RNA sequence: CCGUGCUAGGCGGGGAGGUAGCGGUGCCCUGUACUCGCAAUCCGCUCCAGCGAGGCUGAAUUCCUUUUCACGGUUAAUAUAUUGCAGGGUCUGCCUUAAGUAAGUGGUGUUGACGUUUGGGUCCUGCGCAAUGAGAAUCCAUGAACCAUGUCAGGUCCGGAAGGAAGCAGCAUUAAGUGGAAUCUCUCAUGUGCCGCAGGGUCGCCUGGACCGAGCUAACUGCUUGAGUAACGCUUGUGAUAGUUAAUCAACAAAAGGUGCACGG
Numbered sequence: 001c002c003g004u005g006c007u008a009g010g011c012g013g014g015g016a017g018g019u020a021g022c023g024g025u026g027c028c029c030u031g032u033a034c035u036c037g038c039a040a041u042c043c044g045c046u047c048c049a050g051c052g053a054g055g056c057u058g059a060a061u062u063c064c065u066u067u068u069c070a071c072g073g074u075u076a077a078u079a080u081a082u083u084g085c086a087g088g089g090u091c092u093g094c095c096u097u098a099a100g101u102a103a104g105u106g107g108u109g110u111u112g113a114c115g116u117u118u119g120g121g122u123c124c125u126g127c128g129c130a131a132u133g134a135g136a137a138u139c140c141a142u143g144a145a146c147c148a149u150g151u152c153a154g155g156u157c158c159g160g161a162a163g164g165a166a167g168c169a170g171c172a173u174u175a176a177g178u179g180g181a182a183u184c185u186c187u188c189a190u191g192u193g194c195c196g197c198a199g200g201g202u203c204g205c206c207u208g209g210a211c212c213g214a215g216c217u218a219a220c221u222g223c224u225u226g227a228g229u230a231a232c233g234c235u236u237g238u239g240a241u242a243g244u245u246a247a248u249c250a251a252c253a254a255a256a257g258g259u260g261c262a263c264g265g
Stems, first nucleotide, its partner, number of pairs: 001265006009057003012030004017025001019023001034054005063258006072249005080242009092230002096227006104220002106217003115211008123200006129191002132189005138181005148173004156165003
About this RNA:
Shown here is a 265-nucleotide RNA from Peribacillus deserti, a member of the family "Bacterial large signal recognition particle RNA". The base pairs follow the family's consensus structure, which is taken from published work. The match comes from Rfam's covariance-model search (241 bits). Taxonomically the source falls in Peribacillus (Bacteria, Bacilli, Caryophanales, Bacillaceae).